[Rfam]
RNA: Plastid-psbA-1 3UTR RNA
Nucleotides: 132
Base pairs, nucleotide, nucleotide: 008023009022010021011020012019078131079130080129081128082127083126084125085124086123087122088121089120090119092117093116094115096113097112098111099110100109
Number, partner (000 for none) and nucleotide at each position: 001000u002000u003000g004000a005000a006000g007000c008023u009022c010021c011020a012019u013000c014000u015000a016000c017000a018000a019012a020011u021010g022009g023008a024000u025000a026000a027000g028000a029000c030000c031000c032000g033000g034000u035000c036000u037000u038000a039000g040000u041000g042000u043000a044000u045000a046000u047000g048000a049000g050000u051000u052000u053000u054000u055000g056000a057000a058000a059000a060000a061000u062000u063000u064000u065000u066000a067000u068000a069000u070000u071000a072000a073000a074000u075000a076000a077000a078131a079130a080129g081128g082127g083126a084125g085124c086123a087122a088121u089120a090119a091000u092117c093116c094115c095000c096113c097112u098111c099110u100109u101000g102000u103000u104000c105000u106000a107000u108000c109100a110099a111098g112097a113096g114000g115094g116093g117092g118000a119090u120089u121088a122087u123086u124085g125084c126083u127082c128081c129080c130079u131078u132000u